[Rfam]
RNA: Small Cajal body specific RNA 6
RNA sequence: GGUCAAUGAUGACAAGUAAAAGGUCUGAGGGCACAGGGGAAUUACACUCCAUUACCCUAUGGCUCCCAGCAGUCCCUGUUCUGUCAUGCCAUAGUAGAGCUAUGAUUGAAGAAGAGAUUGCUGACAGUUUGGGAUUAAUUUGGUUCCAGUUCUCCACAGUGAACGGAGUUGUGGCACUGAAUGUCAUCCAACAGAACUGGUUAAGAGGAGCUUGUGGUAGUGGGGUGUCUUCAUUUGUUGUGUGUGAUCUAAAGUUUUCAAGCUGAGACC
Numbered sequence: 001g002g003u004c005a006a007u008g009a010u011g012a013c014a015a016g017u018a019a020a021a022g023g024u025c026u027g028a029g030g031g032c033a034c035a036g037g038g039g040a041a042u043u044a045c046a047c048u049c050c051a052u053u054a055c056c057c058u059a060u061g062g063c064u065c066c067c068a069g070c071a072g073u074c075c076c077u078g079u080u081c082u083g084u085c086a087u088g089c090c091a092u093a094g095u096a097g098a099g100c101u102a103u104g105a106u107u108g109a110a111g112a113a114g115a116g117a118u119u120g121c122u123g124a125c126a127g128u129u130u131g132g133g134a135u136u137a138a139u140u141u142g143g144u145u146c147c148a149g150u151u152c153u154c155c156a157c158a159g160u161g162a163a164c165g166g167a168g169u170u171g172u173g174g175c176a177c178u179g180a181a182u183g184u185c186a187u188c189c190a191a192c193a194g195a196a197c198u199g200g201u202u203a204a205g206a207g208g209a210g211c212u213u214g215u216g217g218u219a220g221u222g223g224g225g226u227g228u229c230u231u232c233a234u235u236u237g238u239u240g241u242g243u244g245u246g247a248u249c250u251a252a253a254g255u256u257u258u259c260a261a262g263c264u265g266a267g268a269c270c
Base pairs, nucleotide, nucleotide: 001270002269003268004267035250036249037248045227046226047225048224049223050222051221052220063210064209065208066207067123068122069121070120071119072118073117080109081108083106084105085104086103087102088101089099131189133188134187135186137184146174147173148172152168153167154166155165